This 182-nucleotide RNA from Desulfitobacterium dichloroeliminans belongs to the Rfam family "Lysine riboswitch aptamer". The source organism's lineage runs through Bacteria, Bacillota, Eubacteriales, Desulfitobacteriaceae and Desulfitobacterium dichloroeliminans.
RNA sequence: GGGUGGGGUAGAGGCGCGGUAUUUAUUAGUCCUUUUUGGAACAGGAGCAGUGAUGAUACUAAGGAGAAGGAAAUAUCGCCGAAGCUAAUAAUACGCUCAGUAUUGUCUGCUGGGUCUGCAGUGAAUAACUGUAGAACUGUCUCAAUGAACGUCCCAGUUUAUUGAGUUGUGCUAUCUCGGCG
Numbered sequence: 001g002g003g004u005g006g007g008g009u010a011g012a013g014g015c016g017c018g019g020u021a022u023u024u025a026u027u028a029g030u031c032c033u034u035u036u037u038g039g040a041a042c043a044g045g046a047g048c049a050g051u052g053a054u055g056a057u058a059c060u061a062a063g064g065a066g067a068a069g070g071a072a073a074u075a076u077c078g079c080c081g082a083a084g085c086u087a088a089u090a091a092u093a094c095g096c097u098c099a100g101u102a103u104u105g106u107c108u109g110c111u112g113g114g115u116c117u118g119c120a121g122u123g124a125a126u127a128a129c130u131g132u133a134g135a136a137c138u139g140u141c142u143c144a145a146u147g148a149a150c151g152u153c154c155c156a157g158u159u160u161a162u163u164g165a166g167u168u169g170u171g172c173u174a175u176c177u178c179g180g181c182g
Stems, first nucleotide, its partner, number of pairs: 006177006016079009031064004037058002083111003088106007112138002115135008141166009